[Rfam]
The family of this 190-nucleotide RNA from Haematococcus lacustris is "U2 spliceosomal RNA".
The base pairs follow the family's consensus structure, which is taken from published work.
RNA sequence: AUACCUUUCUCGGCCUUUUGGCUAAGAUCAAGUGUAGUUUCUGUUCUAGUUAGUUUGAUAGCUAACUCUUGGUCCAUUGGACCAAUGCUAUCUAACUUAUUUUUCUGAGGGUGCACCCAAUGCAGGGCUUGCUCUGCGGGUGCACAGCUUGACCUCGGCGUUGCACUCCUGCCGAGGUUGAGCACCUCAC
Numbered sequence: 001a002u003a004c005c006u007u008u009c010u011c012g013g014c015c016u017u018u019u020g021g022c023u024a025a026g027a028u029c030a031a032g033u034g035u036a037g038u039u040u041c042u043g044u045u046c047u048a049g050u051u052a053g054u055u056u057g058a059u060a061g062c063u064a065a066c067u068c069u070u071g072g073u074c075c076a077u078u079g080g081a082c083c084a085a086u087g088c089u090a091u092c093u094a095a096c097u098u099a100u101u102u103u104u105c106u107g108a109g110g111g112u113g114c115a116c117c118c119a120a121u122g123c124a125g126g127g128c129u130u131g132c133u134c135u136g137c138g139g140g141u142g143c144a145c146a147g148c149u150u151g152a153c154c155u156c157g158g159c160g161u162u163g164c165a166c167u168c169c170u171g172c173c174g175a176g177g178u179u180g181a182g183c184a185c186c187u188c189a190c
Base pairs, nucleotide, nucleotide: 008027009026010025012023013022014021015020048067049066050065051064052063053062069085070084071083072082073081074080075079112144113143114142115141116140117139118138124135125134126133127132147183148182149181150180151179152178154176155175156174157173158172159171
NCBI's taxonomy places the organism under Eukaryota, Chlorophyta, core chlorophytes, Haematococcaceae, Haematococcus. A search with the family's covariance model found it, with a score of 150 bits.